[Rfam]
The record is a 68-nucleotide RNA sequence from Crocuta crocuta, which matches "Small nucleolar RNA SNORD42" in Rfam.
RNA sequence: GUGCAUAUGAUGGAAAAACUUUUAACCUUCUGAGACUUGUGAUGUUCUCAAAGGAACCGCUGAUGCAC
Number, nucleotide and partner (000 for none) at each position: 001g068002u067003g066004c065005a064006u000007a000008u000009g000010a000011u000012g000013g000014a000015a000016a000017a000018a000019c000020u000021u000022u000023u000024a000025a000026c000027c000028u000029u000030c000031u000032g000033a000034g000035a000036c000037u000038u000039g000040u000041g000042a000043u000044g000045u000046u000047c000048u000049c000050a000051a000052a000053g000054g000055a000056a000057c000058c000059g000060c000061u000062g000063a000064u005065g004066c003067a002068c001
The base pairs follow the family's consensus structure, which was predicted with PFOLD. snoRNA U42 is found in intron 3 of the ribosomal protein L23a (RPL23a) gene in humans and is also present in mice.